Plastid-psbA-1 3UTR RNA: a 113-nucleotide RNA sequence from Vitis rotundifolia. The family is grouped with related families in Rfam's "Plastid-psbA 3UTR RNA clan". For this family Rfam cites "Retrograde signaling in plants: A critical review focusing on the GUN pathway and beyond" (Richter et al., Plant Commun, 2023). By type it is a cis-regulatory element.

RNA sequence: UUGAAGCUCCAUCUACAAAUGGAUACGAUUUCGGUCUUACAUACAAGUUCUUGAAAGUAAAAGAUGGAUGACCAGUUUCUUGUUCCAUCAAGAGGGGUUCCAAGCCUUUAUUU
Numbered sequence: 001u002u003g004a005a006g007c008u009c010c011a012u013c014u015a016c017a018a019a020u021g022g023a024u025a026c027g028a029u030u031u032c033g034g035u036c037u038u039a040c041a042u043a044c045a046a047g048u049u050c051u052u053g054a055a056a057g058u059a060a061a062a063g064a065u066g067g068a069u070g071a072c073c074a075g076u077u078u079c080u081u082g083u084u085c086c087a088u089c090a091a092g093a094g095g096g097g098u099u100c101c102a103a104g105c106c107u108u109u110a111u112u113u
Stems, first nucleotide, its partner, number of pairs: 008023005059113003063109002066106002069103001074098001077094005
NCBI's taxonomy places the organism under Eukaryota, Viridiplantae, Pentapetalae, rosids, Vitis. About the family: Plastid psbA-1 is a non-coding RNA (ncRNA) present in plastids. It was identified in inverted repeat sequences in the 3 prime untranslate region (3UTR) of photosystem II quinone-binding protein (psbA).